[Rfam]
Rfam assigns this 175-nucleotide sequence from Pseudactinotalea sp. HY158 to the family "c-di-AMP riboswitch aptamer (ydaO/yuaA leader)". The match comes from Rfam's covariance-model search (59 bits). From the family's description: This family represents a conserved RNA structure found upstream of the ydaO and yuaA genes in Bacillus subtilis and related genes in other bacteria. The source organism's lineage runs through Bacteria, Bacillati, Actinomycetes, Cellulomonadaceae and Pseudactinotalea.
RNA sequence: UCCUGAUUCCCACCACAUCUCAAUAGGACGGGGGCGGAGGAACCAUCAGCGGUGCCCAGCACCUUGGGGUGCAGUCCGAACCGGGAGUUCGAUCGUCGAUCGGCCCCACGGAACGGGCCAAGUGUUCUCCCACUUGAACCCGACAGCUUACUUCGCAGGCGUAAGGAGAGGUAGA
Number, nucleotide and partner (000 for none) at each position: 001u000002c000003c000004u000005g000006a000007u000008u000009c000010c000011c161012a000013c159014c158015a000016c000017a000018u033019c032020u031021c000022a000023a000024u000025a000026g000027g000028a000029c000030g000031g020032g019033g018034g156035c155036g154037g153038a152039g151040g000041a000042a000043c000044c066045a065046u000047c000048a000049g000050c000051g000052g000053u000054g000055c000056c000057c000058a000059g000060c000061a000062c000063c000064u000065u045066g044067g141068g140069g139070u000071g000072c000073a000074g000075u117076c116077c115078g114079a000080a000081c000082c000083g000084g000085g000086a000087g000088u000089u000090c000091g000092a000093u000094c000095g000096u000097c000098g000099a000100u000101c000102g000103g000104c000105c000106c000107c000108a000109c000110g000111g000112a000113a000114c078115g077116g076117g075118c000119c000120a135121a134122g133123u132124g000125u000126u000127c000128u000129c000130c000131c000132a123133c122134u121135u120136g000137a000138a000139c069140c068141c067142g000143a000144c000145a000146g000147c000148u000149u000150a000151c039152u038153u037154c036155g035156c034157a000158g014159g013160c000161g011162u000163a000164a000165g000166g000167a000168g000169a000170g000171g000172u000173a000174g000175a000